[Rfam]
RNA sequence: CAGCAAAAACCAUGGUCAAAAUUGCGCCUUCUUCGCCGAUCGCGUAUACUUUUGCCGUUGACGUAAUACAGUGUGUUUGCGGCCACCAACCGGAAAGCGCUGAGCAAAAAACCUCGCCGGGCGGGGUUUUUU
Numbered sequence: 001c002a003g004c005a006a007a008a009a010c011c012a013u014g015g016u017c018a019a020a021a022u023u024g025c026g027c028c029u030u031c032u033u034c035g036c037c038g039a040u041c042g043c044g045u046a047u048a049c050u051u052u053u054g055c056c057g058u059u060g061a062c063g064u065a066a067u068a069c070a071g072u073g074u075g076u077u078u079g080c081g082g083c084c085a086c087c088a089a090c091c092g093g094a095a096a097g098c099g100c101u102g103a104g105c106a107a108a109a110a111a112c113c114u115c116g117c118c119g120g121g122c123g124g125g126g127u128u129u130u131u132u
Stems, first nucleotide, its partner, number of pairs: 004060003011057001018052003023046005030039002069102004076096003080092003107131011
The family of this 132-nucleotide RNA sequence from Klebsiella indica is "istR Hfq binding RNA". Gene Ontology terms of the family: negative regulation of translation and mRNA binding. Taxonomically the source falls in Klebsiella (Bacteria, Gammaproteobacteria, Enterobacterales, Enterobacteriaceae).